The record is an 85-nucleotide RNA from Alligator sinensis, which matches "mir-449 microRNA precursor family" in Rfam. The source organism's lineage runs through Eukaryota, Eumetazoa, Bilateria, Deuterostomia and Alligator. It scores 71 bits against the family's covariance model. Its family is annotated with miRNA-mediated post-transcriptional gene silencing and RISC complex in the Gene Ontology. For this family Rfam cites "Small RNA expression and strain specificity in the rat" (Linsen et al., BMC Genomics, 2010). The family is grouped with related families in Rfam's "mir-34 clan". The family has 41 seed sequences and 325 matches in Rfam 15.1.
[Rfam]
RNA sequence: UGUGUGUGGUGGGAAGGCAGUGUACUGUUAGCUGGUUGAAAAAACUGACACCAGCUAACAUGCAGCUGCUAUCCUACUGCACAAA
Numbered sequence: 001u002g003u004g005u006g007u008g009g010u011g012g013g014a015a016g017g018c019a020g021u022g023u024a025c026u027g028u029u030a031g032c033u034g035g036u037u038g039a040a041a042a043a044a045c046u047g048a049c050a051c052c053a054g055c056u057a058a059c060a061u062g063c064a065g066c067u068g069c070u071a072u073c074c075u076a077c078u079g080c081a082c083a084a085a
Stems, first nucleotide, its partner, number of pairs: 001085001003083011016070006022063003027059010042046001